Shown here is a 94-nucleotide sequence from Branchiostoma belcheri, a member of the family "mir-2060 microRNA precursor family". It scores 93 bits against the family's covariance model. Lineage of the source: Eukaryota > Opisthokonta > Leptocardii > Branchiostomatidae > Branchiostoma.
[Rfam]
RNA sequence: GCUCACCUGUGUGUGGAUGGUGUUCAGCACCAAGGACAGGCAUGUUCACCUGUGUGUGGAUGUUGUUCAGCACCAAGGACAGGCAUGUUCCCCU
Numbered sequence: 001g002c003u004c005a006c007c008u009g010u011g012u013g014u015g016g017a018u019g020g021u022g023u024u025c026a027g028c029a030c031c032a033a034g035g036a037c038a039g040g041c042a043u044g045u046u047c048a049c050c051u052g053u054g055u056g057u058g059g060a061u062g063u064u065g066u067u068c069a070g071c072a073c074c075a076a077g078g079a080c081a082g083g084c085a086u087g088u089u090c091c092c093c094u
Stems, first nucleotide, its partner, number of pairs: 006083005018075007026067004031062002034055001036053005